[Rfam]
RNA sequence: GUGCAGUGAUGACCUUACAAACACAUCAUUCCGACCUCAAAUGUGGAGAGAGAUCUCAUUGAACUGAGCACA
Numbered sequence: 001g002u003g004c005a006g007u008g009a010u011g012a013c014c015u016u017a018c019a020a021a022c023a024c025a026u027c028a029u030u031c032c033g034a035c036c037u038c039a040a041a042u043g044u045g046g047a048g049a050g051a052g053a054u055c056u057c058a059u060u061g062a063a064c065u066g067a068g069c070a071c072a
Stems, first nucleotide, its partner, number of pairs: 001071004
Dot-bracket structure: ((((...............................................................)))).

Small nucleolar RNA SNORD63: a 72-nucleotide RNA sequence from Conger conger. From the family's description: snoRNA U63 is found in both humans and mice. Taxonomically the source falls in Conger (Eukaryota, Opisthokonta, Chordata, Elopocephala). The family's RNA type in Rfam is C/D-box small nucleolar RNA.